This 81-nucleotide sequence from Cajanus cajan belongs to the Rfam family "Small nucleolar RNA J33". The family's RNA type in Rfam is C/D-box small nucleolar RNA.
[Rfam]
RNA sequence: UAGUUAGGGGAAUGAUGUACUACCGGCGGGCAAUAAAGCUCCAGGCAUUUCUUGAUAUGGCUUCUGAAAAGGGUAAGAUUA
Numbered sequence: 001u002a003g004u005u006a007g008g009g010g011a012a013u014g015a016u017g018u019a020c021u022a023c024c025g026g027c028g029g030g031c032a033a034u035a036a037a038g039c040u041c042c043a044g045g046c047a048u049u050u051c052u053u054g055a056u057a058u059g060g061c062u063u064c065u066g067a068a069a070a071g072g073g074u075a076a077g078a079u080u081a
Base pairs, nucleotide, nucleotide: 001081002080003079004078005077
Lineage of the source: Eukaryota > Streptophytina > Embryophyta > Pentapetalae > Cajanus.